The record is a 79-nucleotide RNA from Geotrypetes seraphini, which matches "mir-132 microRNA precursor family" in Rfam.
Lineage of the source: Eukaryota > Craniata > Amphibia > Gymnophiona > Geotrypetes.
A search with the family's covariance model found it, with a score of 77 bits.
A reference for the family is Chen et al. (2005), "The developmental miRNA profiles of zebrafish as determined by small RNA cloning", Genes Dev.
[Rfam]
RNA sequence: CUCUAGGGCAACCGUGGCUUUAGAUUGUUACUGUACUUUGAGCCUGGUAACAGUCUACAGCCAUGGUCGCUUGGGCAAG
Numbered sequence: 001c002u003c004u005a006g007g008g009c010a011a012c013c014g015u016g017g018c019u020u021u022a023g024a025u026u027g028u029u030a031c032u033g034u035a036c037u038u039u040g041a042g043c044c045u046g047g048u049a050a051c052a053g054u055c056u057a058c059a060g061c062c063a064u065g066g067u068c069g070c071u072u073g074g075g076c077a078a079g
Stems, first nucleotide, its partner, number of pairs: 012066002015063004023055010